The record is a 92-nucleotide RNA from Leersia perrieri, which matches "Small nucleolar RNA Z152/R70/R12/" in Rfam. Pairs were carried over by alignment from the consensus structure, which was predicted with PFOLD. By type it is a C/D-box small nucleolar RNA.
[Rfam]
RNA sequence: AAUGCAAUGAUGAUAUUGAGGAUUUUGGCAGUGGCGACAUCAGUUGCCGUGAGCUUUUAAUCCAAAAAAAAAGACUUCUCUUUCAGAGCAUU
Numbered sequence: 001a002a003u004g005c006a007a008u009g010a011u012g013a014u015a016u017u018g019a020g021g022a023u024u025u026u027g028g029c030a031g032u033g034g035c036g037a038c039a040u041c042a043g044u045u046g047c048c049g050u051g052a053g054c055u056u057u058u059a060a061u062c063c064a065a066a067a068a069a070a071a072a073g074a075c076u077u078c079u080c081u082u083u084c085a086g087a088g089c090a091u092u
Stems, first nucleotide, its partner, number of pairs: 001092005